TPP riboswitch aptamer (THI element): a 99-nucleotide RNA sequence from Rhodococcus ruber. Gene Ontology term of the family: thiamine pyrophosphate binding. It scores 63 bits against the family's covariance model.
[Rfam]
RNA sequence: UCCGUAGACACGGGGUGCUCCGCAUGUGCGCGGGGCUGAGAUCACACCCGUCGAACCUGAUCAGGUAAUGCUGACGAAGGGAUGUCCUGGCAUGACCAU
Numbered sequence: 001u002c003c004g005u006a007g008a009c010a011c012g013g014g015g016u017g018c019u020c021c022g023c024a025u026g027u028g029c030g031c032g033g034g035g036c037u038g039a040g041a042u043c044a045c046a047c048c049c050g051u052c053g054a055a056c057c058u059g060a061u062c063a064g065g066u067a068a069u070g071c072u073g074a075c076g077a078a079g080g081g082a083u084g085u086c087c088u089g090g091c092a093u094g095a096c097c098a099u
Stems, first nucleotide, its partner, number of pairs: 007086004011050004016044001017036007056080003061074004
The source organism's lineage runs through Bacteria, Actinomycetota, Mycobacteriales, Nocardiaceae and Rhodococcus ruber.